The family of this 83-nucleotide RNA sequence from Arabidopsis lyrata is "Small nucleolar RNA SNORD34".
The family has 14 seed sequences and 1,319 matches in Rfam 15.1.
Rfam links the family to the GO terms nucleolus and RNA processing.
Clan: SNORD34 clan.
The family's consensus secondary structure was predicted with PFOLD.
RNA sequence: AAGAGCCAGUGAUGAUUGAAAAAGAUUGUCUACAUUGUUUGAUUUGCCUCUGAAAUGAAUUCUUUAAUUAGUCUGAGGCUCUU
Dot-bracket structure: ((.((((.....................................................................)))).))
For this family Rfam cites "Purified box C/D snoRNPs are able to reproduce site-specific 2'-O-methylation of target RNA in vitro" (Galardi et al., Mol Cell Biol, 2002). Rfam describes the family as follows. snoRNA U34 is found in intron 5 of the ribosomal protein L13a gene in humans. Rfam classes the family as a C/D-box small nucleolar RNA. The source organism's lineage runs through Eukaryota, Euphyllophyta, Magnoliopsida, malvids and Arabidopsis lyrata.